Source information
This 133-nucleotide sequence from Cebus imitator belongs to the Rfam family "Small nucleolar RNA SNORA1". The family has 29 seed sequences and 1,282 matches in Rfam 15.1. About the family: ACA1 is a member of the H/ACA class of snoRNA that guide the sites of modification of uridines to pseudouridines. The family's RNA type in Rfam is H/ACA-box small nucleolar RNA. It scores 125 bits against the family's covariance model.

RNA sequence: AGCCUCAUUCUUGAUGAGAAUGGGCACUGUUGACCACGGUGUCCAAAAAUAAUUAAUGUGGCUAAACGGAGACAGUUUAUGCUUCCGUCACAGAAUGCCUAUUGCAAAGGUGACAAUGAGACCUGUAAUAUUU
Dot-bracket structure: .(((.(((............(((((((...........)))))))..........))).))).........((((..........((((...................))))..........)))).......